Background
L17-Actino-Proteobacteria ribosomal protein leader: a 59-nucleotide RNA from Actinomadura atramentaria. It is one of the family's seed sequences. The source organism's lineage runs through Bacteria, Actinomycetota, Thermomonosporaceae, Actinomadura and Actinomadura atramentaria. The family's consensus secondary structure is taken from published work. The literature on the family includes a 2020 paper in BMC Microbiol by Eckert and Weinberg, "Discovery of 20 novel ribosomal leader candidates in bacteria and archaea". It is annotated as a cis-regulatory leader.
RNA sequence: CCCGGGGCCGGUCGGCCCCGGGGUUCGGCUGACGCCGGUACCUGACACGGCCGGCGCAG
Numbered sequence: 001c002c003c004g005g006g007g008c009c010g011g012u013c014g015g016c017c018c019c020g021g022g023g024u025u026c027g028g029c030u031g032a033c034g035c036c037g038g039u040a041c042c043u044g045a046c047a048c049g050g051c052c053g054g055c056g057c058a059g
Stems, first nucleotide, its partner, number of pairs: 001022009029059003033056007